This 102-nucleotide RNA sequence from Antarctobacter heliothermus belongs to the Rfam family "L2-Alphaproteobacteria ribosomal protein leader".
The base pairs follow the family's consensus structure, which is taken from published work.
For this family Rfam cites "Discovery of 20 novel ribosomal leader candidates in bacteria and archaea" (Eckert and Weinberg, BMC Microbiol, 2020).
The organism belongs to Antarctobacter, within Bacteria.

RNA sequence: GGGCACCUGCGGACAUCUGUCGAGGGGCCUUACCAGUGGCGGGCCAAACCCCGCCCUACAUAAGCCCCGGCAACGGGGCUGCUAGCUAACGGAAGACAGAAA
Numbered sequence: 001g002g003g004c005a006c007c008u009g010c011g012g013a014c015a016u017c018u019g020u021c022g023a024g025g026g027g028c029c030u031u032a033c034c035a036g037u038g039g040c041g042g043g044c045c046a047a048a049c050c051c052c053g054c055c056c057u058a059c060a061u062a063a064g065c066c067c068c069g070g071c072a073a074c075g076g077g078g079c080u081g082c083u084a085g086c087u088a089a090c091g092g093a094a095g096a097c098a099g100a101a102a
Stems, first nucleotide, its partner, number of pairs: 001030004006026003039082004044077002